[Rfam]
RNA sequence: AACUCCCCCGACUUGACACAACAUCCUGCCGCGAUGUUGUGCGACCUGCCGUGUCAGUCGGAGAAGUC
Numbered sequence: 001a002a003c004u005c006c007c008c009c010g011a012c013u014u015g016a017c018a019c020a021a022c023a024u025c026c027u028g029c030c031g032c033g034a035u036g037u038u039g040u041g042c043g044a045c046c047u048g049c050c051g052u053g054u055c056a057g058u059c060g061g062a063g064a065a066g067u068c
Stems, first nucleotide, its partner, number of pairs: 001067001004064002008061005020038006043055003
Dot-bracket structure: (..((..(((((.......((((((.......))))))....(((.......))).))))).))..).
Notes:
The family of this 68-nucleotide RNA from Drepanopeziza brunnea is "bZIP non canonical Hac1/Xbp1 intron". bZIP intron RNA is a non-canonical intron that was first reported in HAC1 gene in yeast and XBP1 gene in Metazoa. Rfam 15.1 lists 1,325 matches to the family in 1,320 species. By type it is a small RNA. The literature on the family includes a 2018 paper in mSphere by Iracane et al., "Identification of an Exceptionally Long Intron in the HAC1 Gene of Candida parapsilosis".